[Rfam]
Nucleotides: 102
Base pairs, nucleotide, nucleotide: 018088020086021085022084023083024082025081029049030048031047032046033045034044035043059077060076061075062074063073064072
Number, partner (000 for none) and nucleotide at each position: 001000a002000a003000a004000a005000u006000c007000a008000a009000u010000a011000u012000c013000a014000g015000g016000u017000u018088c019000c020086c021085u022084c023083a024082u025081a026000u027000a028000u029049g030048u031047c032046u033045g034044u035043g036000a037000a038000u039000u040000a041000g042000g043035c044034a045033c046032g047031g048030a049029u050000g051000u052000u053000u054000c055000u056000a057000c058000a059077a060076g061075a062074c063073c064072a065000c066000c067000g068000u069000a070000a071000a072064u073063g074062g075061u076060c077059u078000g079000u080000c081025u082024a083023u084022g085021a086020g087000u088018g089000g090000g091000a092000u093000u094000a095000u096000u097000a098000u099000a100000a101000u102000u

Notes
The record is a 102-nucleotide RNA from Alkaliphilus sp., which matches "Purine riboswitch aptamer" in Rfam. About the family: Riboswitches are metabolite binding domains within certain messenger RNAs that serve as precision sensors for their corresponding targets. It scores 76 bits against the family's covariance model.